[Rfam]
Rfam assigns this 131-nucleotide RNA from Secundilactobacillus malefermentans to the family "Enterococcus sRNA 68 (Lacto-3 RNA)".
The family's RNA type in Rfam is small RNA.
A reference for the family is Innocenti et al. (2015), "Whole-genome mapping of 5' RNA ends in bacteria by tagged sequencing: a comprehensive view in Enterococcus faecalis", RNA.
The sequence is in the family's curated seed alignment.
Lineage of the source: Bacteria > Bacillati > Bacilli > Lactobacillales > Secundilactobacillus malefermentans.
The base pairs follow the family's consensus structure, which is taken from published work.
RNA sequence: UGCGAUGAGUCGAAGAAAUCACGCCGCAUUUAUGCGGUCCGCGCAAGCGGCUAGGUGAUGUUUCGAAUGCAGGGGCAAGGUAACACCCACCGGAUAUGCGGGAGCCUUGAUUCCAACGGAUUGUGGAGUUC
Number, nucleotide and partner (000 for none) at each position: 001u000002g000003c000004g000005a000006u000007g000008a000009g000010u000011c000012g000013a000014a000015g000016a000017a000018a059019u058020c057021a056022c055023g038024c037025c036026g035027c034028a033029u000030u000031u000032a000033u028034g027035c026036g025037g024038u023039c050040c049041g048042c047043g000044c000045a000046a000047g042048c041049g040050g039051c000052u000053a000054g000055g022056u021057g020058a019059u018060g000061u000062u000063u000064c000065g000066a000067a000068u000069g000070c000071a000072g000073g107074g106075g105076c104077a000078a000079g000080g000081u000082a000083a000084c000085a000086c102087c101088c100089a000090c098091c000092g000093g000094a000095u000096a000097u000098g090099c000100g088101g087102g086103a000104g076105c075106c074107u073108u000109g000110a000111u000112u000113c000114c000115a000116a000117c000118g000119g130120a129121u128122u127123g000124u000125g000126g000127a122128g121129u120130u119131c000